Rfam assigns this 162-nucleotide RNA sequence from Clostridium isatidis to the family "M-box riboswitch aptamer (ykoK leader)". The literature on the family includes a 2011 paper in J Mol Biol by Ramesh et al., "Insights into metalloregulation by M-box riboswitch RNAs via structural analysis of manganese-bound complexes". A search with the family's covariance model found it, with a score of 107 bits. Gene Ontology terms of the family: regulation of gene expression and response to magnesium ion.
[Rfam]
Nucleotides: 162
Stems, first nucleotide, its partner, number of pairs: 005158002008155003011146001013098001015141003020135003025131008039116005046074001049071001055066004082107004088101003
Number, partner (000 for none) and nucleotide at each position: 001000u002000u003000a004000a005158u006157a007000a008155u009154u010153c011146g012000g013098u014000a015141g016140g017139u018000g019000a020135g021134g022133u023000u024000a025131c026130c027129a028128u029127g030126a031125g032124g033000a034000u035000a036000a037000g038000g039116g040115u041114u042113g043112c044000u045000g046074c047000c048000g049071c050000g051000a052000a053000a054000u055066a056065g057064u058063g059000g060000a061000g062000a063058c064057a065056c066055u067000a068000u069000a070000a071049g072000a073000a074046g075000g076000u077000u078000a079000g080000c081000a082107g083106u084105u085104u086000a087000u088101g089100u090099c091000g092000a093000a094000a095000c096000c097000a098013a099090g100089g101088c102000g103000u104085a105084g106083a107082c108000u109000a110000a111000u112043g113042c114041a115040a116039u117000u118000u119000c120000a121000u122000c123000g124032c125031c126030u127029u128028a129027u130026g131025g132000a133022g134021c135020u136000g137000a138000a139017g140016c141015u142000u143000g144000a145000a146011c147000g148000a149000u150000g151000a152000u153010g154009a155008a156000g157006u158005g159000a160000u161000a162000a